[Rfam]
The family of this 136-nucleotide RNA sequence from Myripristis murdjan is "Small nucleolar RNA SNORA22". By type it is an H/ACA-box small nucleolar RNA. Pairs were carried over by alignment from the consensus structure, which was predicted with RNAfold. It scores 84 bits against the family's covariance model.
RNA sequence: UUGCACAGAGAACACCCAAGGAUGCUAAUAUGGCUCUCCCUGGUCUCCUGUGUCUGUGCUACAGUGAUUCUGAUCUCUACCUCUGCAUUAAGAGAGUUGUCUUCUCCCUUAACUGCAUCAGUGGAUCAGUACAAAA
Numbered sequence: 001u002u003g004c005a006c007a008g009a010g011a012a013c014a015c016c017c018a019a020g021g022a023u024g025c026u027a028a029u030a031u032g033g034c035u036c037u038c039c040c041u042g043g044u045c046u047c048c049u050g051u052g053u054c055u056g057u058g059c060u061a062c063a064g065u066g067a068u069u070c071u072g073a074u075c076u077c078u079a080c081c082u083c084u085g086c087a088u089u090a091a092g093a094g095a096g097u098u099g100u101c102u103u104c105u106c107c108c109u110u111a112a113c114u115g116c117a118u119c120a121g122u123g124g125a126u127c128a129g130u131a132c133a134a135a136a
Base pairs, nucleotide, nucleotide: 003059004058005057006056007055008054010053013050014049016043017042018041020039022037024034025033026032061076063074065072066071083121084120085119086115087114089112090110091109092108094106095105096104